A member of the RNA family "Ruegeria cis90 sRNA" from Rhizobium sp. BK376, 234 nucleotides long.
Rfam links the family to the GO term regulation of gene expression.
The family's RNA type in Rfam is small RNA.
A search with the family's covariance model found it, with a score of 77 bits.
The source organism's lineage runs through Bacteria, Pseudomonadati, Hyphomicrobiales, Rhizobiaceae and Rhizobium.
For this family Rfam cites "Experimental Identification of Small Non-Coding RNAs in the Model Marine Bacterium Ruegeria pomeroyi DSS-3" (Rivers et al., Front Microbiol, 2016).
RNA sequence: GUCUCGCGCACGAGCGGAUCGGCAAAAUUCGACAGCUGGAACGGAUCGAAAUAGCCGCCGGGAUUGGCCGUCAUCCAGGAGUAGAUACGGCUGGAACCGAGCCAUUGCAGCAGCAGGUAGCACGCUUCCGGGCUCUUGCUCUGCGAAGAGAUCGAGGCCGAAAGAUUGAGCCAGAGUACCGAGCGGCGCGCGAGCUGGCCGUUGAUCUCGCGGCCUGGCGGCAGAGCGGAGCCG
Numbered sequence: 001g002u003c004u005c006g007c008g009c010a011c012g013a014g015c016g017g018a019u020c021g022g023c024a025a026a027a028u029u030c031g032a033c034a035g036c037u038g039g040a041a042c043g044g045a046u047c048g049a050a051a052u053a054g055c056c057g058c059c060g061g062g063a064u065u066g067g068c069c070g071u072c073a074u075c076c077a078g079g080a081g082u083a084g085a086u087a088c089g090g091c092u093g094g095a096a097c098c099g100a101g102c103c104a105u106u107g108c109a110g111c112a113g114c115a116g117g118u119a120g121c122a123c124g125c126u127u128c129c130g131g132g133c134u135c136u137u138g139c140u141c142u143g144c145g146a147a148g149a150g151a152u153c154g155a156g157g158c159c160g161a162a163a164g165a166u167u168g169a170g171c172c173a174g175a176g177u178a179c180c181g182a183g184c185g186g187c188g189c190g191c192g193a194g195c196u197g198g199c200c201g202u203u204g205a206u207c208u209c210g211c212g213g214c215c216u217g218g219c220g221g222c223a224g225a226g227c228g229g230a231g232c233c234g
Stems, first nucleotide, its partner, number of pairs: 002218002004025001006023002008020001010019001011017001028156004033150001037145002040142001048141001053136002058131004062126001064124001065087002068084001071079002090123001097116001099114001103110001157215001158213003165206005176195001177192001179190001180188002219234004